[Rfam]
RNA sequence: GGCCUUUCAUUUCCACGCAACGCCCCCUAUAUUCGUUUUGUCGGCUUGACCGACUAUGGCGAUAAAUGGGCGAUGAAAUAAGCCGUUCGGACCCGGGGGCGGUACCCGGCGCCUCCACCAAAAGCCGCUGUUGACGACAGAGCGGUUUUUGCUGGGGGCGAAAUAGGAUCGACGAAGGUGUAAAGAUCGUACUUUUGCCCGGCAUUGUACCACCGUCAUCGGGCUAAACUUAUAGUUGCCAACGACAACUAUGCGGAAGCACGUCUCGCUGCUUAAUGCAGUGCGAUAGCUUCAAAUCAAGCCCUAGGGGUUCGCACUUCUAGGCGGGGUUCGGAGGUACCUGGCAACAGAAACCUCCACU
Numbered sequence: 001g002g003c004c005u006u007u008c009a010u011u012u013c014c015a016c017g018c019a020a021c022g023c024c025c026c027c028u029a030u031a032u033u034c035g036u037u038u039u040g041u042c043g044g045c046u047u048g049a050c051c052g053a054c055u056a057u058g059g060c061g062a063u064a065a066a067u068g069g070g071c072g073a074u075g076a077a078a079u080a081a082g083c084c085g086u087u088c089g090g091a092c093c094c095g096g097g098g099g100c101g102g103u104a105c106c107c108g109g110c111g112c113c114u115c116c117a118c119c120a121a122a123a124g125c126c127g128c129u130g131u132u133g134a135c136g137a138c139a140g141a142g143c144g145g146u147u148u149u150u151g152c153u154g155g156g157g158g159c160g161a162a163a164u165a166g167g168a169u170c171g172a173c174g175a176a177g178g179u180g181u182a183a184a185g186a187u188c189g190u191a192c193u194u195u196u197g198c199c200c201g202g203c204a205u206u207g208u209a210c211c212a213c214c215g216u217c218a219u220c221g222g223g224c225u226a227a228a229c230u231u232a233u234a235g236u237u238g239c240c241a242a243c244g245a246c247a248a249c250u251a252u253g254c255g256g257a258a259g260c261a262c263g264u265c266u267c268g269c270u271g272c273u274u275a276a277u278g279c280a281g282u283g284c285g286a287u288a289g290c291u292u293c294a295a296a297u298c299a300a301g302c303c304c305u306a307g308g309g310g311u312u313c314g315c316a317c318u319u320c321u322a323g324g325c326g327g328g329g330u331u332c333g334g335a336g337g338u339a340c341c342u343g344g345c346a347a348c349a350g351a352a353a354c355c356u357c358c359a360c361u
Stems, first nucleotide, its partner, number of pairs: 040054005058199005068193002071189004083178002087175003093109005110160007200215003205226001207224001210222002327342004333358006